[Rfam]
RNA sequence: GAUUCCUUUUAAACCGAUCCCGUGAGGUCGGUAAAGGAGCCCACAUGUGCGCCCCAAAAUUGUGCUUUCAGAGUUUUUCAGCCUGUCCGCUUGUGCGGAUGGGCUUUUUUGUU
Numbered sequence: 001g002a003u004u005c006c007u008u009u010u011a012a013a014c015c016g017a018u019c020c021c022g023u024g025a026g027g028u029c030g031g032u033a034a035a036g037g038a039g040c041c042c043a044c045a046u047g048u049g050c051g052c053c054c055c056a057a058a059a060u061u062g063u064g065c066u067u068u069c070a071g072a073g074u075u076u077u078u079c080a081g082c083c084u085g086u087c088c089g090c091u092u093g094u095g096c097g098g099a100u101g102g103g104c105u106u107u108u109u110u111g112u113u
Base pairs, nucleotide, nucleotide: 003039004038005037006036007035008034009033014031015030016029017028018027019026043074044073046070047069049067051065052064054062080105081104082103083102084101085100086099087098088097089096090095
RNA: PyrR binding site
Organism: Desulfuromonas thiophila